[Rfam]
Notes:
TPP riboswitch aptamer (THI element): a 134-nucleotide sequence from Lampropedia puyangensis. The source organism's lineage runs through Bacteria, Pseudomonadati, Betaproteobacteria, Burkholderiales and Lampropedia. A search with the family's covariance model found it, with a score of 65 bits.
RNA sequence: GCACCAACCGAGGGGAGUCCCGCCAAGGGGCUGAGAGACUGUUACGCACCACAGCCGCACAUGGCCGCGCAGCACAGUGACCCUUUGAACCUGCUCCGGAUCAUGCCGGCGAAGGGACGGAUGUUCACCACGCG
Numbered sequence: 001g002c003a004c005c006a007a008c009c010g011a012g013g014g015g016a017g018u019c020c021c022g023c024c025a026a027g028g029g030g031c032u033g034a035g036a037g038a039c040u041g042u043u044a045c046g047c048a049c050c051a052c053a054g055c056c057g058c059a060c061a062u063g064g065c066c067g068c069g070c071a072g073c074a075c076a077g078u079g080a081c082c083c084u085u086u087g088a089a090c091c092u093g094c095u096c097c098g099g100a101u102c103a104u105g106c107c108g109g110c111g112a113a114g115g116g117a118c119g120g121a122u123g124u125u126c127a128c129c130a131c132g133c134g
Base pairs, nucleotide, nucleotide: 006122008120009119010118011084012083013082014081017031018030019029020028021027038078039077040076041075042074090115091114092113096109097108098107099106